[Rfam]
RNA sequence: GAGGUGUGUUGUAUUCUGGGCCUAACAAGGUUUGGAGCGACCGUGCCAGCACGUCUCUGGGAAAACACAAUGCCUGCAAGGGCGUUUGAUUUAGGAUCAAAUCUAGUGAAGCAAAAGACUGGCACGGUGCCGUGAGAAAGGUGGUUAAUUCCGGAGGGCUUGCCCAAUCCGGAGCGCAGUAGGCCGCAAGCUGAAUGCGUUCGUUCAAGACCAAGACGUAGACCCUUAGCGGGGUCGAGCUGCUCGCAAGGCAGGCGUGGCGAGAAAGGAUGAGUAUCACGGCGCGACAUGGGAACAGCCUCCCAUUCAAAAAGGCACCGCUGAUGGAAUACGUGGAGAGGGUCAAACCGCCACGUGGAUACGGCCCAACGAAGCUCGCAAGGCUCCGGUACAGGCAUCCAAAGGUCCAUCGGUCUCGGGCAUAAUCUCAGCCC
Numbered sequence: 001g002a003g004g005u006g007u008g009u010u011g012u013a014u015u016c017u018g019g020g021c022c023u024a025a026c027a028a029g030g031u032u033u034g035g036a037g038c039g040a041c042c043g044u045g046c047c048a049g050c051a052c053g054u055c056u057c058u059g060g061g062a063a064a065a066c067a068c069a070a071u072g073c074c075u076g077c078a079a080g081g082g083c084g085u086u087u088g089a090u091u092u093a094g095g096a097u098c099a100a101a102u103c104u105a106g107u108g109a110a111g112c113a114a115a116a117g118a119c120u121g122g123c124a125c126g127g128u129g130c131c132g133u134g135a136g137a138a139a140g141g142u143g144g145u146u147a148a149u150u151c152c153g154g155a156g157g158g159c160u161u162g163c164c165c166a167a168u169c170c171g172g173a174g175c176g177c178a179g180u181a182g183g184c185c186g187c188a189a190g191c192u193g194a195a196u197g198c199g200u201u202c203g204u205u206c207a208a209g210a211c212c213a214a215g216a217c218g219u220a221g222a223c224c225c226u227u228a229g230c231g232g233g234g235u236c237g238a239g240c241u242g243c244u245c246g247c248a249a250g251g252c253a254g255g256c257g258u259g260g261c262g263a264g265a266a267a268g269g270a271u272g273a274g275u276a277u278c279a280c281g282g283c284g285c286g287a288c289a290u291g292g293g294a295a296c297a298g299c300c301u302c303c304c305a306u307u308c309a310a311a312a313a314g315g316c317a318c319c320g321c322u323g324a325u326g327g328a329a330u331a332c333g334u335g336g337a338g339a340g341g342g343u344c345a346a347a348c349c350g351c352c353a354c355g356u357g358g359a360u361a362c363g364g365c366c367c368a369a370c371g372a373a374g375c376u377c378g379c380a381a382g383g384c385u386c387c388g389g390u391a392c393a394g395g396c397a398u399c400c401a402a403a404g405g406u407c408c409a410u411c412g413g414u415c416u417c418g419g420g421c422a423u424a425a426u427c428u429c430a431g432c433c434c
Stems, first nucleotide, its partner, number of pairs: 001057007008041005015036009043125007111187002127285009141321005150173006156165003174200005182192003203271004216258004221236004240254005298316004323411003327407002330357007358427003363399002419433003
Notes: This 434-nucleotide RNA from Roseobacter phage DSS3P8 belongs to the Rfam family "Giant, ornate, lake- and Lactobacillales-derived (GOLLD) RNA". A search with the family's covariance model found it, with a score of 151 bits. NCBI's taxonomy places the organism under Viruses, Duplodnaviria, Heunggongvirae, Uroviricota, Caudoviricetes.